This 114-nucleotide RNA belongs to the Rfam family "LOOT RNA". Pairs were carried over by alignment from the consensus structure, which is taken from published work. Rfam classes the family as a small RNA.
RNA sequence: AGCCUAAACUAAGAGAUUGGCAUGGCGAAAGGAAUCCAUUCAGAGUAAACAGCUCCUAGUCAGAGCACUCUGAACGGUUAUGUUGGGAAACCAACAUAGAUAGCGAAAGCUAUC
Numbered sequence: 001a002g003c004c005u006a007a008a009c010u011a012a013g014a015g016a017u018u019g020g021c022a023u024g025g026c027g028a029a030a031g032g033a034a035u036c037c038a039u040u041c042a043g044a045g046u047a048a049a050c051a052g053c054u055c056c057u058a059g060u061c062a063g064a065g066c067a068c069u070c071u072g073a074a075c076g077g078u079u080a081u082g083u084u085g086g087g088a089a090a091c092c093a094a095c096a097u098a099g100a101u102a103g104c105g106a107a108a109g110c111u112a113u114c
Stems, first nucleotide, its partner, number of pairs: 002026003009020003036077002039074008052066004079098008099114006